[Rfam]
RNA sequence: AGGCAGUGAUGACAAACUACAUUUCUCGAAUCUGAAACUGUGUGCUAAAUCACAGUGGAUCAAAGUUACCUGAUGACUGCGUUUGUGCGUGUCUGAGCCUU
Numbered sequence: 001a002g003g004c005a006g007u008g009a010u011g012a013c014a015a016a017c018u019a020c021a022u023u024u025c026u027c028g029a030a031u032c033u034g035a036a037a038c039u040g041u042g043u044g045c046u047a048a049a050u051c052a053c054a055g056u057g058g059a060u061c062a063a064a065g066u067u068a069c070c071u072g073a074u075g076a077c078u079g080c081g082u083u084u085g086u087g088c089g090u091g092u093c094u095g096a097g098c099c100u101u
Stems, first nucleotide, its partner, number of pairs: 001100004
Rfam assigns this 101-nucleotide RNA from Cucurbita maxima to the family "small nucleolar RNA snoR126". On this family, see Chen and Wu, Nucleic Acids Res 2009: "Mining small RNA sequencing data: a new approach to identify small nucleolar RNAs in Arabidopsis". Its family is annotated with RNA processing and nucleolus in the Gene Ontology. The source organism's lineage runs through Eukaryota, Viridiplantae, Spermatophyta, Gunneridae and Cucurbita.